The record is a 71-nucleotide RNA from Roseibium suaedae, which matches "Makes More Granules Regulator RNA (mmgR)" in Rfam. Gene Ontology terms of the family: DNA-templated transcription, termination, response to nitrogen compound and protein binding. From the family's description: SuhB later renamed mmgR (makes more granules regulator) was a putative non-coding RNA found multiple times in the Agrobacterium tumefaciens genome and related alpha-proteobacteria. Other non-coding RNAs uncovered in the same analysis include: speF, ybhL, metA, and serC.Several studies inSinorhizobium meliloti showed that suhB element is indeed a non-coding RNA:firstly it was detected on Northern blot and called Sm8RNA, secondly in an RNAseq study referred to as SmelC689.The mutant phenotype's (strain lacking the small RNA) cytoplasm contains higher content of polyhydroxybutyrate (PBH)storage granules than wild type strain. The sRNA is required to limit the PBH intracellular accumulation when the nitrogen-fixing Sinorhizobium meliloti is under condition of surplus carbon in relation to nitrogen. It has been renamed to mmgR. Further study confirmed that mmgR fine-tunes the regulation of PBH storage.Northern blot confirmed the expression of the sRNA in other rhizobia species. Rfam classes the family as a small RNA. NCBI's taxonomy places the organism under Bacteria, Pseudomonadati, Alphaproteobacteria, Stappiaceae, Roseibium.
RNA sequence: UAGCGCCGCCCUCCUUGGGCGUUUCCUCCCUAGACUCGGGCCGCAUUACGCGGCCCCUUUUUUUAUGUGCC
Number, nucleotide and partner (000 for none) at each position: 001u000002a000003g000004c000005g000006c000007c000008g020009c019010c018011c017012u000013c000014c000015u000016u000017g011018g010019g009020c008021g000022u000023u000024u000025c000026c000027u000028c000029c000030c000031u000032a000033g000034a000035c000036u000037c000038g056039g055040g054041c053042c052043g051044c050045a000046u000047u000048a000049c000050g044051c043052g042053g041054c040055c039056c038057c000058u000059u000060u000061u000062u000063u000064u000065a000066u000067g000068u000069g000070c000071c000